[Rfam]
RNA sequence: UAUUAACCUGGUUAGGAGAGGCUACUAUAUAGAAAUACGCCACUGCCCAGAAACAUCCAGAGAUGCCAAUGGGUAAACAGGGAUAAUCGAGAAGGUUAUACCUAAUGUGGCUGGGUCAGCCCUAAGCUAUAUAGAGCUAAAACCCAACAGGUGACAGGUAGACC
Number, nucleotide and partner (000 for none) at each position: 001u000002a000003u000004u000005a000006a159007c158008c157009u156010g155011g148012u147013u093014a000015g144016g143017a000018g000019a000020g138021g137022c136023u000024a000025c134026u133027a132028u131029a130030u129031a128032g127033a000034a000035a000036u000037a000038c000039g111040c110041c109042a108043c107044u000045g074046c073047c072048c071049a070050g000051a000052a000053a000054c065055a064056u063057c062058c000059a000060g000061a000062g057063a056064u055065g054066c000067c000068a000069a000070u049071g048072g047073g046074u045075a000076a000077a000078c000079a000080g102081g101082g000083a099084u000085a000086a096087u095088c094089g000090a000091g000092a000093a013094g088095g087096u086097u000098a000099u083100a000101c081102c080103u000104a000105a000106u000107g043108u042109g041110g040111c039112u000113g122114g121115g120116u000117c000118a000119g000120c115121c114122c113123u000124a000125a000126g000127c032128u031129a030130u029131a028132u027133a026134g025135a000136g022137c021138u020139a000140a000141a000142a000143c016144c015145c000146a000147a012148c011149a000150g000151g000152u000153g000154a000155c010156a009157g008158g007159u006160a000161g000162a000163c000164c000

M-box riboswitch aptamer (ykoK leader): a 164-nucleotide RNA from Caloranaerobacter sp. TR13. The match comes from Rfam's covariance-model search (127 bits). Pairs were carried over by alignment from the consensus structure.